[Rfam]
RNA sequence: UUAGAUUUUCUUCAUUUUCUUCUGAAAUUUUUCUGGGAUUCUUUGAAGGUUGAUGGAGAUGAUAUGAAGAUGAAAAAGAGGAGAAG
Numbered sequence: 001u002u003a004g005a006u007u008u009u010c011u012u013c014a015u016u017u018u019c020u021u022c023u024g025a026a027a028u029u030u031u032u033c034u035g036g037g038a039u040u041c042u043u044u045g046a047a048g049g050u051u052g053a054u055g056g057a058g059a060u061g062a063u064a065u066g067a068a069g070a071u072g073a074a075a076a077a078g079a080g081g082a083g084a085a086g
Stems, first nucleotide, its partner, number of pairs: 006079004011074009026051007
Dot-bracket structure: .....((((.(((((((((......(((((((............)))))))..............))))))))).)))).......
Description
This 86-nucleotide sequence from Medicago truncatula belongs to the Rfam family "MIR5298 microRNA precursor family". Pairs were carried over by alignment from the consensus structure, which was predicted with RNAalifold. Its family is annotated with RISC complex and miRNA-mediated post-transcriptional gene silencing in the Gene Ontology.